[Rfam]
RNA sequence: UCGAGUGUGAAGGAGUGGUUUAUCUAAACAGUGGAAACAGGGAAACACUUGAUUUAGUUAAACCAGAAU
Numbered sequence: 001u002c003g004a005g006u007g008u009g010a011a012g013g014a015g016u017g018g019u020u021u022a023u024c025u026a027a028a029c030a031g032u033g034g035a036a037a038c039a040g041g042g043a044a045a046c047a048c049u050u051g052a053u054u055u056a057g058u059u060a061a062a063c064c065a066g067a068a069u
Base pairs, nucleotide, nucleotide: 016065017064018063019062020061021060024057025056029051030050031048032047033046
About this RNA:
Shown here is a 69-nucleotide RNA sequence, a member of the family "Cyano-1 RNA". The base pairs follow the family's consensus structure, which is taken from published work. Rfam 15.1 lists 283 matches to the family in 194 species. It is one of the family's seed sequences. It is annotated as a small RNA.